The record is a 165-nucleotide sequence from Caldisalinibacter kiritimatiensis, which matches "M-box riboswitch aptamer (ykoK leader)" in Rfam.
[Rfam]
RNA sequence: UGUGAACCUGGUUAGGCGAGGCUCCUAUAUAGAAAUACGCCACUGCCCAGAAACAUCUAGAGAUGCCAAUGGGUUGAACAUGUAUAAUCGGAAAGGUUAUACAUAACGUGGCUGGUUUUAUCCUAAGCUAUAUAGUGCCAAACCCCAACAGGUGUUAGGAGAAUA
Numbered sequence: 001u002g003u004g005a006a007c008c009u010g011g012u013u014a015g016g017c018g019a020g021g022c023u024c025c026u027a028u029a030u031a032g033a034a035a036u037a038c039g040c041c042a043c044u045g046c047c048c049a050g051a052a053a054c055a056u057c058u059a060g061a062g063a064u065g066c067c068a069a070u071g072g073g074u075u076g077a078a079c080a081u082g083u084a085u086a087a088u089c090g091g092a093a094a095g096g097u098u099a100u101a102c103a104u105a106a107c108g109u110g111g112c113u114g115g116u117u118u119u120a121u122c123c124u125a126a127g128c129u130a131u132a133u134a135g136u137g138c139c140a141a142a143c144c145c146c147a148a149c150a151g152g153u154g155u156u157a158g159g160a161g162a163a164u165a
Stems, first nucleotide, its partner, number of pairs: 007159004011149002013094001015145002020139003025135008039112005045074005054065004081103004087097003114123002

Description: Taxonomically the source falls in Caldisalinibacter (Bacteria, Tissierellia, Tissierellales, Thermohalobacteraceae).